Shown here is a 75-nucleotide RNA from Phasianus colchicus, a member of the family "Small nucleolar RNA SNORD59".
Its Rfam clan is "SNORD59 clan".
A search with the family's covariance model found it, with a score of 57 bits.
RNA sequence: CUUCCGGUGAUGAUGGAUUUCGGUGACUUUCGUUCUUCUGAGCUCGCUGAAGCCACACGCGAAAAUCUGAGGAGG
Numbered sequence: 001c002u003u004c005c006g007g008u009g010a011u012g013a014u015g016g017a018u019u020u021c022g023g024u025g026a027c028u029u030u031c032g033u034u035c036u037u038c039u040g041a042g043c044u045c046g047c048u049g050a051a052g053c054c055a056c057a058c059g060c061g062a063a064a065a066u067c068u069g070a071g072g073a074g075g
Stems, first nucleotide, its partner, number of pairs: 001075003005071001
The organism belongs to Phasianus, within Eukaryota.